small nucleolar RNA snoR126: a 98-nucleotide RNA from Zea mays. The base pairs follow the family's consensus structure, which was predicted with RNAalifold. Rfam classes the family as a C/D-box small nucleolar RNA. Taxonomically the source falls in Zea (Eukaryota, Mesangiospermae, commelinids, Andropogoneae).
RNA sequence: UGGCUGUGAUGACAAAAAGGUUAUUUGGUUGAUUAUGAUUACUUAAUGCCAUAUAAGGAUCAAAACGUGAUGACCUUAUUUGUGCGUGUCUGAGCCGA
Numbered sequence: 001u002g003g004c005u006g007u008g009a010u011g012a013c014a015a016a017a018a019g020g021u022u023a024u025u026u027g028g029u030u031g032a033u034u035a036u037g038a039u040u041a042c043u044u045a046a047u048g049c050c051a052u053a054u055a056a057g058g059a060u061c062a063a064a065a066c067g068u069g070a071u072g073a074c075c076u077u078a079u080u081u082g083u084g085c086g087u088g089u090c091u092g093a094g095c096c097g098a
Stems, first nucleotide, its partner, number of pairs: 001097004